This 80-nucleotide sequence from Biomphalaria glabrata belongs to the Rfam family "mir-31 microRNA precursor family". NCBI's taxonomy places the organism under Eukaryota, Opisthokonta, Gastropoda, Euthyneura, Biomphalaria. Rfam 15.1 lists 1,181 matches to the family in 783 species.
RNA sequence: GAGUUCAGACCAGGCAAGAUGUUGGCAUAGCUGAGUCAAACAACUGUCAGCUGUGUCAUAUGUUGCCAAUUGUGGACUCG
Numbered sequence: 001g002a003g004u005u006c007a008g009a010c011c012a013g014g015c016a017a018g019a020u021g022u023u024g025g026c027a028u029a030g031c032u033g034a035g036u037c038a039a040a041c042a043a044c045u046g047u048c049a050g051c052u053g054u055g056u057c058a059u060a061u062g063u064u065g066c067c068a069a070u071u072g073u074g075g076a077c078u079c080g
Stems, first nucleotide, its partner, number of pairs: 005075003009071001013067005019061003023058009